[Rfam]
RNA sequence: AUGCAUUUUGUAUAUCGUAGAUCUCUCUUAUAAUAUAGAACGAUCUUGAACCAAAGUGCAUAGAUUAAGAGCUGUUAAAUCAGCAAGCAGCCAGACAACUGCUGUGAUGGAUCCACAGAUUAACGGCCUAUUAAUGCUGUUUGUCUACUAAUUCCAUCUUACAUUU
Numbered sequence: 001a002u003g004c005a006u007u008u009u010g011u012a013u014a015u016c017g018u019a020g021a022u023c024u025c026u027c028u029u030a031u032a033a034u035a036u037a038g039a040a041c042g043a044u045c046u047u048g049a050a051c052c053a054a055a056g057u058g059c060a061u062a063g064a065u066u067a068a069g070a071g072c073u074g075u076u077a078a079a080u081c082a083g084c085a086a087g088c089a090g091c092c093a094g095a096c097a098a099c100u101g102c103u104g105u106g107a108u109g110g111a112u113c114c115a116c117a118g119a120u121u122a123a124c125g126g127c128c129u130a131u132u133a134a135u136g137c138u139g140u141u142u143g144u145c146u147a148c149u150a151a152u153u154c155c156a157u158c159u160u161a162c163a164u165u166u
Stems, first nucleotide, its partner, number of pairs: 002060005010051002013048002019046005026039003104160001106158006121143003124139003
Dot-bracket structure: .(((((...((.((....(((((..(((........)))..))))))).))....)))))...........................................(.((((((.........((((((..........))).))).........)))))).)......
RNA: small nucleolar RNA snoR143